[Rfam]
RNA: Small nucleolar RNA U109
Organism: Ovis aries
RNA sequence: UUGCACGCGGAAGUGGCUGCUCCUCAUUCAUUUGGAAGCGGAAUACAUGCUACAUUGAAAAAGGAGUUCUCAGGGCUGCCAGCCUUAUAGUACAAGUUGAGUAGUAGUAUAUUUCUCCUGCAUUA
Numbered sequence: 001u002u003g004c005a006c007g008c009g010g011a012a013g014u015g016g017c018u019g020c021u022c023c024u025c026a027u028u029c030a031u032u033u034g035g036a037a038g039c040g041g042a043a044u045a046c047a048u049g050c051u052a053c054a055u056u057g058a059a060a061a062a063g064g065a066g067u068u069c070u071c072a073g074g075g076c077u078g079c080c081a082g083c084c085u086u087a088u089a090g091u092a093c094a095a096g097u098u099g100a101g102u103a104g105u106a107g108u109a110u111a112u113u114u115c116u117c118c119u120g121c122a123u124u125a
Stems, first nucleotide, its partner, number of pairs: 003050003007046001017041005023035001063118004075105002079101001080099004085094001